This 178-nucleotide RNA sequence from Prochlorococcus sp. AG-315-D17 belongs to the Rfam family "permuted transfer-messenger RNA". Rfam classes the family as a non-coding RNA gene. NCBI's taxonomy places the organism under Bacteria, Cyanobacteriota, Synechococcales, Prochlorococcaceae, Prochlorococcus. On this family, see Williams and Bartel, RNA 1996: "Phylogenetic analysis of tmRNA secondary structure". The base pairs follow the family's consensus structure, which is taken from published work.
RNA sequence: GGUGAUCCAUACCAGUAUCUCGGACAGCGGUUCGAUUCCGCUCAGCUCCAUAAAUGGGGCUGCAAUGGUUUCGACGGGGUAUCAGGCGGGUAACUGAAGCCUGCUCGGCUCGAGCGAAACCAUAACUGCUAACAACAUCGUUAGUUUCUCCCGUCAAACAGCCCCUGUUGCUGCUUGA
Numbered sequence: 001g002g003u004g005a006u007c008c009a010u011a012c013c014a015g016u017a018u019c020u021c022g023g024a025c026a027g028c029g030g031u032u033c034g035a036u037u038c039c040g041c042u043c044a045g046c047u048c049c050a051u052a053a054a055u056g057g058g059g060c061u062g063c064a065a066u067g068g069u070u071u072c073g074a075c076g077g078g079g080u081a082u083c084a085g086g087c088g089g090g091u092a093a094c095u096g097a098a099g100c101c102u103g104c105u106c107g108g109c110u111c112g113a114g115c116g117a118a119a120c121c122a123u124a125a126c127u128g129c130u131a132a133c134a135a136c137a138u139c140g141u142u143a144g145u146u147u148c149u150c151c152c153g154u155c156a157a158a159c160a161g162c163c164c165c166u167g168u169u170g171c172u173g174c175u176u177g178a
Stems, first nucleotide, its partner, number of pairs: 001095003005091001016081003020077003026042005043062007